Shown here is a 91-nucleotide sequence from Oryzias latipes, a member of the family "mir-135 microRNA precursor family". The match comes from Rfam's covariance-model search (61 bits).

[Rfam]
RNA sequence: UCUUGUGGGGUCCAGAUGACCCCACUCCCUACGUGAACGUGCCUCCAAGGCACGUUCACGUAGGGAGUGGGGUCAUCUGGACCCCACAAGA
Numbered sequence: 001u002c003u004u005g006u007g008g009g010g011u012c013c014a015g016a017u018g019a020c021c022c023c024a025c026u027c028c029c030u031a032c033g034u035g036a037a038c039g040u041g042c043c044u045c046c047a048a049g050g051c052a053c054g055u056u057c058a059c060g061u062a063g064g065g066a067g068u069g070g071g072g073u074c075a076u077c078u079g080g081a082c083c084c085c086a087c088a089a090g091a
Base pairs, nucleotide, nucleotide: 002090003089004088005087006086007085008084009083010082011081012080013079014078015077016076017075018074019073020072021071022070023069025067026066027065028064029063030062031061032060033059034058035057036056037055038054039053040052041051
Rfam 15.1 lists 2,125 matches to the family in 647 species.